RNA sequence: GGACCACGAGACGAUGUGAUUGGGCCAUGAGCUCUACAUUUUGUAUUGCCAGGCCCAGGAAAGUCCCCGGGCCUCUUCCUGCAGAGAUGCAGACUCGAAAACGAGCUACACUACGAGGCUGGGAAUUCAAUCGCCUAGUGCGAGGGGCUGAGACACGUGUGGAGCCCAUGAAUUCCCGCCGUGGUAAUUUGGCCGAUUUACACAGUUAUUCACAUGGUCCCACUGGGGACUAACUGAACGGGGCUUACGCUCUCGUGGUC
Number, nucleotide and partner (000 for none) at each position: 001g000002g260003a259004c258005c257006a256007c255008g254009a253010g252011a251012c000013g000014a215015u214016g213017u212018g211019a210020u000021u000022g056023g055024g054025c053026c000027a000028u000029g000030a000031g000032c000033u000034c000035u000036a000037c000038a000039u000040u000041u000042u000043g000044u000045a000046u000047u000048g000049c000050c000051a000052g000053g025054c024055c023056c022057a000058g000059g000060a000061a246062a245063g244064u000065c243066c242067c241068c240069g000070g000071g000072c000073c000074u000075c000076u000077u000078c000079c000080u091081g090082c089083a088084g000085a000086g000087a000088u083089g082090c081091a080092g107093a000094c105095u104096c103097g102098a000099a000100a000101a000102c097103g096104a095105g094106c000107u092108a000109c000110a185111c184112u000113a000114c000115g000116a000117g180118g179119c178120u000121g176122g175123g000124a000125a000126u172127u171128c170129a169130a000131u000132c000133g000134c000135c000136u000137a000138g167139u000140g165141c164142g000143a000144g000145g000146g000147g000148c000149u000150g000151a000152g000153a160154c159155a000156c000157g000158u000159g154160u153161g000162g000163a000164g141165c140166c000167c138168a000169u129170g128171a127172a126173u000174u000175c122176c121177c000178g119179c118180c117181g000182u000183g000184g111185u110186a000187a000188u000189u000190u000191g000192g000193c000194c000195g000196a000197u000198u000199u000200a000201c000202a000203c000204a000205g000206u000207u000208a000209u000210u019211c018212a017213c016214a015215u014216g000217g230218u229219c228220c227221c226222a000223c000224u000225g000226g221227g220228g219229a218230c217231u000232a000233a000234c000235u000236g000237a000238a000239c000240g068241g067242g066243g065244c063245u062246u061247a000248c000249g000250c000251u011252c010253u009254c008255g007256u006257g005258g004259u003260c002
This 260-nucleotide RNA sequence from Castanea mollissima belongs to the Rfam family "RNase MRP".
A search with the family's covariance model found it, with a score of 94 bits.
Rfam describes the family as follows. RNase MRP is an enzymatically active ribonucleoprotein with two distinct roles in eukaryotes. In mitochondria it plays a direct role in the initiation of mitochondrial DNA replication. In the nucleus it is involved in precursor rRNA processing, where it cleaves the internal transcribed spacer 1 between 18S and 5.8S rRNAs.